[Rfam]
RNA sequence: AAAUGAUGUAUUAUACAUUUUCUAACCAAUUCCUUGAAUCGCUCCCAAGCUUCAUACAAUGCCUCAUCUUCAUAUUGCCGAAAAGAUGUAAUAUCAUUCCUCAAUUU
Numbered sequence: 001a002a003a004u005g006a007u008g009u010a011u012u013a014u015a016c017a018u019u020u021u022c023u024a025a026c027c028a029a030u031u032c033c034u035u036g037a038a039u040c041g042c043u044c045c046c047a048a049g050c051u052u053c054a055u056a057c058a059a060u061g062c063c064u065c066a067u068c069u070u071c072a073u074a075u076u077g078c079c080g081a082a083a084a085g086a087u088g089u090a091a092u093a094u095c096a097u098u099c100c101u102c103a104a105u106u107u
Base pairs, nucleotide, nucleotide: 001107003105004104005102006101058073

A member of the RNA family "Plant small nucleolar RNA R71" from Gossypium mustelinum, 107 nucleotides long. It scores 53 bits against the family's covariance model. Taxonomically the source falls in Gossypium (Eukaryota, Spermatophyta, Magnoliopsida, Mesangiospermae). For this family Rfam cites "Plant snoRNAs: functional evolution and new modes of gene expression" (Brown et al., Trends Plant Sci, 2003).